[Rfam]
U5 spliceosomal RNA: a 124-nucleotide sequence from Pyrus ussuriensis x Pyrus communis. Its family is annotated with U5 snRNP and spliceosomal tri-snRNP complex assembly in the Gene Ontology. About the family: U5 RNA is a component of both types of known spliceosome. The precise function of this molecule is unknown, though it is known that the 5' loop is required for splice site selection and p220 binding, and that both the 3' stem-loop and the Sm site are important for Sm protein binding and cap methylation. Taxonomically the source falls in Pyrus (Eukaryota, Embryophyta, Spermatophyta, Mesangiospermae). The family's RNA type in Rfam is spliceosomal small nuclear RNA.
RNA sequence: AGCCGUGCGUUAAGCAUAAAGCGAAUUAUUCAUUUGCCUUUUACUAAAGAAUAUCGUGUACUCAUCGUUAUCGUUUCAAGUGGUAUACGUCUAUUUUUGAAGGGGUGUACCUUUGUGGAUGCCC
Numbered sequence: 001a002g003c004c005g006u007g008c009g010u011u012a013a014g015c016a017u018a019a020a021g022c023g024a025a026u027u028a029u030u031c032a033u034u035u036g037c038c039u040u041u042u043a044c045u046a047a048a049g050a051a052u053a054u055c056g057u058g059u060a061c062u063c064a065u066c067g068u069u070a071u072c073g074u075u076u077c078a079a080g081u082g083g084u085a086u087a088c089g090u091c092u093a094u095u096u097u098u099g100a101a102g103g104g105g106u107g108u109a110c111c112u113u114u115g116u117g118g119a120u121g122c123c124c
Stems, first nucleotide, its partner, number of pairs: 003083004008067002011064001013062002016059003027053005033047002103124006